[Rfam]
RNA sequence: CCUCCUCUUCUUGGCGGGGAUCGGGCUUGCGGUCCCGGUCCCCGUAAUGUACGGAGGCAGAGGAAAGGGGCUCCGGCCCCCUCGGCGUCAUGUCUUCGGUGCCGACGGUUUCCAGGCCGCCGGUUCUAUCCUCAAGCGCCGGGACACUG
Numbered sequence: 001c002c003u004c005c006u007c008u009u010c011u012u013g014g015c016g017g018g019g020a021u022c023g024g025g026c027u028u029g030c031g032g033u034c035c036c037g038g039u040c041c042c043c044g045u046a047a048u049g050u051a052c053g054g055a056g057g058c059a060g061a062g063g064a065a066a067g068g069g070g071c072u073c074c075g076g077c078c079c080c081c082u083c084g085g086c087g088u089c090a091u092g093u094c095u096u097c098g099g100u101g102c103c104g105a106c107g108g109u110u111u112c113c114a115g116g117c118c119g120c121c122g123g124u125u126c127u128a129u130c131c132u133c134a135a136g137c138g139c140c141g142g143g144a145c146a147c148u149g
Stems, first nucleotide, its partner, number of pairs: 001057005015044006022037004083141006102123003106119003
Source information
This 149-nucleotide sequence from Phyllostomus discolor belongs to the Rfam family "Small nucleolar RNA SNORA57". Its family is annotated with nucleolus and RNA processing in the Gene Ontology. Rfam describes the family as follows. U99 belongs to the H/ACA class of snoRNAs which are thought to guide the sites of modification of uridines to pseudouridines, the target for this family is unknown. The family's consensus secondary structure was predicted with PFOLD.